[Rfam]
RNA sequence: AGCAAAGUAGGGCACGCGCGUCAAGUGUCGGCGGAUGGGAAGUCGCCGCCGGACGAAAGACGGCAGUCUGCGGUGCGUGUCCGCGUCCGUUGCG
Numbered sequence: 001a002g003c004a005a006a007g008u009a010g011g012g013c014a015c016g017c018g019c020g021u022c023a024a025g026u027g028u029c030g031g032c033g034g035a036u037g038g039g040a041a042g043u044c045g046c047c048g049c050c051g052g053a054c055g056a057a058a059g060a061c062g063g064c065a066g067u068c069u070g071c072g073g074u075g076c077g078u079g080u081c082c083g084c085g086u087c088c089g090u091u092g093c094g
Stems, first nucleotide, its partner, number of pairs: 002093004010082009019072003025054002028052007038088003042084001058069004

The record is a 94-nucleotide sequence from Subdoligranulum sp. CAG:314, which matches "THF (Tetrahydrofolate) riboswitch aptamer" in Rfam. On this family, see Trausch and Batey, Chem Biol 2014: "A disconnect between high-affinity binding and efficient regulation by antifolates and purines in the tetrahydrofolate riboswitch". Rfam links the family to the GO term tetrahydrofolate metabolic process. Tetrahydrofolate (THF) riboswitch was first reported for Ames et al. as an RNA motif in 5' untranslated (5'-UTR)regions of folate transport and biosynthesis genes in Firmicutes genomes. Lineage of the source: Bacteria > Bacillati > Clostridia > Eubacteriales > Subdoligranulum.